Shown here is a 183-nucleotide RNA from Castor canadensis, a member of the family "Small Cajal body specific RNA 16".
About the family: scaRNAs are a specific class of small nuclear RNAs which localise to the Cajal bodies and guide the modification of RNA polymerase II transcribed spliceosomal RNAs U1, U2, U4, U5 and U12.
Gene Ontology terms of the family: nucleolus and RNA processing.
A search with the family's covariance model found it, with a score of 141 bits.
RNA sequence: AUGGUCGGGGAAGGGCUUGUGUGUUGUUGAGCCUGCCCAGCGGUGGAUGCAGCCAUGUACCAGGCAGCCCAACCUUGACCUAAAGUAAAUUCCAAGAAUCCUUCUGGGGAUUUAAAUUUACAGUGACAGGUGUGAGCGUUCUAGCAGCAGUUUUGAUAUUCAUGUAUGAUACUGCAGUCAGUC
Numbered sequence: 001a002u003g004g005u006c007g008g009g010g011a012a013g014g015g016c017u018u019g020u021g022u023g024u025u026g027u028u029g030a031g032c033c034u035g036c037c038c039a040g041c042g043g044u045g046g047a048u049g050c051a052g053c054c055a056u057g058u059a060c061c062a063g064g065c066a067g068c069c070c071a072a073c074c075u076u077g078a079c080c081u082a083a084a085g086u087a088a089a090u091u092c093c094a095a096g097a098a099u100c101c102u103u104c105u106g107g108g109g110a111u112u113u114a115a116a117u118u119u120a121c122a123g124u125g126a127c128a129g130g131u132g133u134g135a136g137c138g139u140u141c142u143a144g145c146a147g148c149a150g151u152u153u154u155g156a157u158a159u160u161c162a163u164g165u166a167u168g169a170u171a172c173u174g175c176a177g178u179c180a181g182u183c
Stems, first nucleotide, its partner, number of pairs: 003080004007075003014069004018064001020062002023060002026053004031048001033046001092109002095105004118177002121174005127168002133162003138157003143152003